Rfam assigns this 194-nucleotide RNA sequence from Stomatobaculum longum to the family "Group II catalytic intron D1-D4-5".
[Rfam]
RNA sequence: GAUAACUGAUAGUUUGACAGGUGGAAUGACGGGGUAACGCCCUGAAACGCCUGCCCUCGGUGGGCAUGCAUAAGCUGUAAAGGCUUUUGUAUGAAGCCCCACGACAACGGCUGAGAGCAGCCGUACCGGCAGCCAAUGCCGGCGAAAGCGCCCCAGAGGUGGGGUGUGCUGCCUAUAAGCCAAGGGUCUAUAAG
Numbered sequence: 001g002a003u004a005a006c007u008g009a010u011a012g013u014u015u016g017a018c019a020g021g022u023g024g025a026a027u028g029a030c031g032g033g034g035u036a037a038c039g040c041c042c043u044g045a046a047a048c049g050c051c052u053g054c055c056c057u058c059g060g061u062g063g064g065c066a067u068g069c070a071u072a073a074g075c076u077g078u079a080a081a082g083g084c085u086u087u088u089g090u091a092u093g094a095a096g097c098c099c100c101a102c103g104a105c106a107a108c109g110g111c112u113g114a115g116a117g118c119a120g121c122c123g124u125a126c127c128g129g130c131a132g133c134c135a136a137u138g139c140c141g142g143c144g145a146a147a148g149c150g151c152c153c154c155a156g157a158g159g160u161g162g163g164g165u166g167u168g169c170u171g172c173c174u175a176u177a178a179g180c181c182a183a184g185g186g187u188c189u190a191u192a193a194g
Stems, first nucleotide, its partner, number of pairs: 018053006031043004054186004061101004065093006072086005109181004117172005122144003128140004148167008
Dot-bracket structure: .................((((((.......((((.....))))....))))))((((...((((((((((.(((((.....))))).))))))....)))).......((((....((((((((...((((.....)))).)))...((((((((....))))))))))))).....)))).))))........
NCBI's taxonomy places the organism under Bacteria, Bacillota, Lachnospirales, Lachnospiraceae, Stomatobaculum. A reference for the family is Lehmann and Schmidt (2003), "Group II introns: structure and catalytic versatility of large natural ribozymes", Crit Rev Biochem Mol Biol. Group II introns are found in rRNA, tRNA and mRNA of organelles in fungi, plants and protists, and also in mRNA in bacteria. A search with the family's covariance model found it, with a score of 156 bits.